[Rfam]
RNA sequence: GAGCACUGAUGAAAGGUUUUACUCCUGACCUUUGUGAAGUUUUCUACAUUUGAUCUGAGCUCG
Numbered sequence: 001g002a003g004c005a006c007u008g009a010u011g012a013a014a015g016g017u018u019u020u021a022c023u024c025c026u027g028a029c030c031u032u033u034g035u036g037a038a039g040u041u042u043u044c045u046a047c048a049u050u051u052g053a054u055c056u057g058a059g060c061u062c063g
Stems, first nucleotide, its partner, number of pairs: 001062004013032006